[Rfam]
RNA sequence: CCUUCACUGAUGAGUAACUUCGUGACUUUCGUUCUUCUGAGAUUGCUGAAGCAACUCUUCUUUUUCUGAGAAGG
Numbered sequence: 001c002c003u004u005c006a007c008u009g010a011u012g013a014g015u016a017a018c019u020u021c022g023u024g025a026c027u028u029u030c031g032u033u034c035u036u037c038u039g040a041g042a043u044u045g046c047u048g049a050a051g052c053a054a055c056u057c058u059u060c061u062u063u064u065u066c067u068g069a070g071a072a073g074g
Stems, first nucleotide, its partner, number of pairs: 001074003005070001

Small nucleolar RNA SNORD59: a 74-nucleotide RNA sequence from Salvator merianae. Pairs were carried over by alignment from the consensus structure, which was predicted with ILM. Rfam 15.1 lists 1,355 matches to the family in 620 species. The organism belongs to Salvator, within Eukaryota. Rfam classes the family as a C/D-box small nucleolar RNA. Clan: SNORD59 clan. A search with the family's covariance model found it, with a score of 80 bits.